The record is a 110-nucleotide RNA sequence from Aegilops tauschii, which matches "MIR6201 microRNA precursor family" in Rfam. The organism belongs to Aegilops, within Eukaryota. Rfam's curators put it in the seed alignment.
RNA sequence: ACCGGCGUUUGACCCUGAGGCACUCAUACCGCCGGCUGGUUUAGAAUGCUAGCCCGUAUGAGUGCCUUUAGAAUGCUAGCGGUACGAGUGUCUCAGGGCCAAACUCCGAU
Numbered sequence: 001a002c003c004g005g006c007g008u009u010u011g012a013c014c015c016u017g018a019g020g021c022a023c024u025c026a027u028a029c030c031g032c033c034g035g036c037u038g039g040u041u042u043a044g045a046a047u048g049c050u051a052g053c054c055c056g057u058a059u060g061a062g063u064g065c066c067u068u069u070a071g072a073a074u075g076c077u078a079g080c081g082g083u084a085c086g087a088g089u090g091u092c093u094c095a096g097g098g099c100c101a102a103a104c105u106c107c108g109a110u
Stems, first nucleotide, its partner, number of pairs: 005106001007104005013098013027084006034077003046059004